The family of this 144-nucleotide RNA sequence from Mesorhizobium sp. Root157 is "Alphaproteobacterial sRNA BjrC1505".

[Rfam]
RNA sequence: GAUGCUGUUAACGCAUCAUUAAGCUUUACGGUUGUUUACUAUAGUUAUCCAGUGAUCUGGAUUCUUACCGAGUGGUUGGAGCCACUUUGUUUGACGCCUCCCUGUUAAACUCCUGAGAGCCGCCUUAUCCGCGGCUCUUUUUUU
Numbered sequence: 001g002a003u004g005c006u007g008u009u010a011a012c013g014c015a016u017c018a019u020u021a022a023g024c025u026u027u028a029c030g031g032u033u034g035u036u037u038a039c040u041a042u043a044g045u046u047a048u049c050c051a052g053u054g055a056u057c058u059g060g061a062u063u064c065u066u067a068c069c070g071a072g073u074g075g076u077u078g079g080a081g082c083c084a085c086u087u088u089g090u091u092u093g094a095c096g097c098c099u100c101c102c103u104g105u106u107a108a109a110c111u112c113c114u115g116a117g118a119g120c121c122g123c124c125u126u127a128u129c130c131g132c133g134g135c136u137c138u139u140u141u142u143u144u
Stems, first nucleotide, its partner, number of pairs: 002042003006013001015037001022033004047062004070087006093106004115139009
Dot-bracket structure: .(((.(......).(......((((....))))...)..)))....((((........)))).......((((((......)))))).....((((......))))........(((((((((.......))))))))).....
Lineage of the source: Bacteria > Pseudomonadati > Pseudomonadota > Phyllobacteriaceae > Mesorhizobium. By type it is a small RNA. For this family Rfam cites "Small RNAs of the Bradyrhizobium/Rhodopseudomonas lineage and their analysis" (Madhugiri et al., RNA Biol, 2012).